[Rfam]
RNA sequence: AUUUUUCCGUUGAAGACAAGAGUAAAAUUAAUUGAAUUGCCAAGAGAGAAUGAGCCGUGGCUGUAAGCUUAUUCCAUUAGAUUAAUUUGAAAGACAGGUUGGAGGAUUGGUAGUGCAAAGCUACCACGCUGCAGGCGUUACUUGCAAAAGGAGAGCAAAAGGCUCUCGAAUAAAGGUGGUACCGCGUCCUCAGAACGUCCUUUCC
Numbered sequence: 001a002u003u004u005u006u007c008c009g010u011u012g013a014a015g016a017c018a019a020g021a022g023u024a025a026a027a028u029u030a031a032u033u034g035a036a037u038u039g040c041c042a043a044g045a046g047a048g049a050a051u052g053a054g055c056c057g058u059g060g061c062u063g064u065a066a067g068c069u070u071a072u073u074c075c076a077u078u079a080g081a082u083u084a085a086u087u088u089g090a091a092a093g094a095c096a097g098g099u100u101g102g103a104g105g106a107u108u109g110g111u112a113g114u115g116c117a118a119a120g121c122u123a124c125c126a127c128g129c130u131g132c133a134g135g136c137g138u139u140a141c142u143u144g145c146a147a148a149a150g151g152a153g154a155g156c157a158a159a160a161g162g163c164u165c166u167c168g169a170a171u172a173a174a175g176g177u178g179g180u181a182c183c184g185c186g187u188c189c190u191c192a193g194a195a196c197g198u199c200c201u202u203u204c205c
Stems, first nucleotide, its partner, number of pairs: 007105002015100003025088006050072006108126007127137003151167006173202004184198004
Rfam assigns this 205-nucleotide sequence from Jeotgalibaca porci to the family "T-box leader". A reference for the family is Grundy et al. (1994), "Interaction between the acceptor end of tRNA and the T box stimulates antitermination in the Bacillus subtilis tyrS gene: a new role for the discriminator base", J Bacteriol. Rfam's curators write: Uncharged tRNA acts as the effector for transcription antitermination of genes in the T-box leader family. T-boxes are found upstream of many aminoacyl-tRNA synthetase genes and some amino acid biosynthetic genes usually in Gram-positive bacteria. The anticodon of a specific tRNA base pairs to a specifier sequence within the T-box motif, and the NCCA acceptor tail of the tRNA base pairs to a conserved bulge in the T-box antiterminator hairpin. It is annotated as a cis-regulatory leader.